A member of the RNA family "Small nucleolar RNA SNORA5" from Scyliorhinus torazame, 119 nucleotides long. About the family: ACA5 is a member of the H/ACA class of snoRNA that guide the sites of modification of uridines to pseudouridines.
[Rfam]
RNA sequence: UGGUGGUCUCUGAUGGCCUGGUCCACAUUUUGUGGACCAGUACUAAAUGGCGCCACCAUAUGGUCUCCCGGGCCCAGGCGUUUGAUCCCAGGCCCUGGGAGAAUCUUGUGCAGACAUAU
Numbered sequence: 001u002g003g004u005g006g007u008c009u010c011u012g013a014u015g016g017c018c019u020g021g022u023c024c025a026c027a028u029u030u031u032g033u034g035g036a037c038c039a040g041u042a043c044u045a046a047a048u049g050g051c052g053c054c055a056c057c058a059u060a061u062g063g064u065c066u067c068c069c070g071g072g073c074c075c076a077g078g079c080g081u082u083u084g085a086u087c088c089c090a091g092g093c094c095c096u097g098g099g100a101g102a103a104u105c106u107u108g109u110g111c112a113g114a115c116a117u118a119u
Base pairs, nucleotide, nucleotide: 002054003053004052005051018040019039020038021037022036023035024034025033026032027031066108073099074098075097076096077095
Rfam classes the family as an H/ACA-box small nucleolar RNA.
Rfam links the family to the GO terms RNA processing and nucleolus.
Its Rfam clan is "SNORA5 clan".
Pairs were carried over by alignment from the consensus structure, which was predicted with RNAfold.